RNA: mir-290 microRNA precursor family
RNA sequence: GUGGCACUCAAACUGUGGGGGCACUUUCUGCACUCGGGUGAAAAAAGUGCCGCCAUCUUUUGAGUGUUAC
Numbered sequence: 001g002u003g004g005c006a007c008u009c010a011a012a013c014u015g016u017g018g019g020g021g022c023a024c025u026u027u028c029u030g031c032a033c034u035c036g037g038g039u040g041a042a043a044a045a046a047g048u049g050c051c052g053c054c055a056u057c058u059u060u061u062g063a064g065u066g067u068u069a070c
Base pairs, nucleotide, nucleotide: 004067005066006065007064008063009062010061011060012059015056016055017054018053020051021050022049023048024047025046026043027042